Shown here is a 265-nucleotide RNA sequence from Pseudorhizobium pelagicum, a member of the family "Group I catalytic intron". Group I catalytic introns are large self-splicing ribozymes. The organism belongs to Pseudorhizobium, within Bacteria. It scores 106 bits against the family's covariance model.

RNA sequence: AAAUGGGGCUUAUUGAGUUUGAUCACGCUAAAGGCGAGUACAGCUUAAGCCGCCCUAUGGAGAAAUUCAUAGAGGAAAAACUGGGUGAAUUGCUGGAAACCCCUAACGAGAAAGACGAGGGCAAUCAGCAGCCAAGCUCUGCAGAACUUGCAGAGAAGGUUCAACGACUAUUCCGUGAGGAAGUACACCAGAAGUCUGGUGGAAGCGCCCAGCCCCUGCCGUAAGUAGGGUGAUGAUAUAGUCUCUUCUGCAUGGAAACAUGCAG
Numbered sequence: 001a002a003a004u005g006g007g008g009c010u011u012a013u014u015g016a017g018u019u020u021g022a023u024c025a026c027g028c029u030a031a032a033g034g035c036g037a038g039u040a041c042a043g044c045u046u047a048a049g050c051c052g053c054c055c056u057a058u059g060g061a062g063a064a065a066u067u068c069a070u071a072g073a074g075g076a077a078a079a080a081c082u083g084g085g086u087g088a089a090u091u092g093c094u095g096g097a098a099a100c101c102c103c104u105a106a107c108g109a110g111a112a113a114g115a116c117g118a119g120g121g122c123a124a125u126c127a128g129c130a131g132c133c134a135a136g137c138u139c140u141g142c143a144g145a146a147c148u149u150g151c152a153g154a155g156a157a158g159g160u161u162c163a164a165c166g167a168c169u170a171u172u173c174c175g176u177g178a179g180g181a182a183g184u185a186c187a188c189c190a191g192a193a194g195u196c197u198g199g200u201g202g203a204a205g206c207g208c209c210c211a212g213c214c215c216c217u218g219c220c221g222u223a224a225g226u227a228g229g230g231u232g233a234u235g236a237u238a239u240a241g242u243c244u245c246u247u248c249u250g251c252a253u254g255g256a257a258a259c260a261u262g263c264a265g
Stems, first nucleotide, its partner, number of pairs: 005055001007054003013048007059068003081212004086207002091130006100121003104117001131160002138153001143148001164244001166243005214230006250263005